The record is a 425-nucleotide part of an RNA from Macrostomum lignano, which matches "Eukaryotic large subunit ribosomal RNA" in Rfam.
RNA sequence: UGACCUCGGAUCAGACGUGAUUACCCGCUGAAUUUAAGCAUAUUAUUAAGCGGAGGAAAAGAAACUAACAAGGAUUCCCCUAGUAACGGCGAGUGAACGGGGAAGAGCCCAACACCGAAUCCCUUGGCGCAAGUCAACGGGAAAUGUGGUGUUAAGGUAGCCCUUCGUGUCAGUCUAGGCGUCUCAAGUCCACCUGAUUGUGGCUCAAGCCCAGAGAGGGUGUAAGGCCCGUAGAGACGCUCCGACUGAUUCCUGGGGUUUACCUACGAGUCGGCUUGUUUGGGAAUGCAGGCCAAAGCGGGUGGUAAACUCCAUCCAAGGCUAAAUACUGGCACGAGUCCGAUAGCGGACAAGUACCGUGAGGGAAAGUUGAAAAGAACUUUGAAGAGAGAGUUCAAUAGUACGUGAAACCGCUUAGAGGCAAA
Numbered sequence: 001u002g003a004c005c006u007c008g009g010a011u012c013a014g015a016c017g018u019g020a021u022u023a024c025c026c027g028c029u030g031a032a033u034u035u036a037a038g039c040a041u042a043u044u045a046u047u048a049a050g051c052g053g054a055g056g057a058a059a060a061g062a063a064a065c066u067a068a069c070a071a072g073g074a075u076u077c078c079c080c081u082a083g084u085a086a087c088g089g090c091g092a093g094u095g096a097a098c099g100g101g102g103a104a105g106a107g108c109c110c111a112a113c114a115c116c117g118a119a120u121c122c123c124u125u126g127g128c129g130c131a132a133g134u135c136a137a138c139g140g141g142a143a144a145u146g147u148g149g150u151g152u153u154a155a156g157g158u159a160g161c162c163c164u165u166c167g168u169g170u171c172a173g174u175c176u177a178g179g180c181g182u183c184u185c186a187a188g189u190c191c192a193c194c195u196g197a198u199u200g201u202g203g204c205u206c207a208a209g210c211c212c213a214g215a216g217a218g219g220g221u222g223u224a225a226g227g228c229c230c231g232u233a234g235a236g237a238c239g240c241u242c243c244g245a246c247u248g249a250u251u252c253c254u255g256g257g258g259u260u261u262a263c264c265u266a267c268g269a270g271u272c273g274g275c276u277u278g279u280u281u282g283g284g285a286a287u288g289c290a291g292g293c294c295a296a297a298g299c300g301g302g303u304g305g306u307a308a309a310c311u312c313c314a315u316c317c318a319a320g321g322c323u324a325a326a327u328a329c330u331g332g333c334a335c336g337a338g339u340c341c342g343a344u345a346g347c348g349g350a351c352a353a354g355u356a357c358c359g360u361g362a363g364g365g366a367a368a369g370u371u372g373a374a375a376a377g378a379a380c381u382u383u384g385a386a387g388a389g390a391g392a393g394u395u396c397a398a399u400a401g402u403a404c405g406u407g408a409a410a411c412c413g414c415u416u417a418g419a420g421g422c423a424a425a
Stems, first nucleotide, its partner, number of pairs: 024055001025053005035042002065072002076103005086094002106323004113151005119145001120142004124137005156264002159260003163257001165256002169250007178241007188204001190203004212216001219229002273294007300317005357364002380391004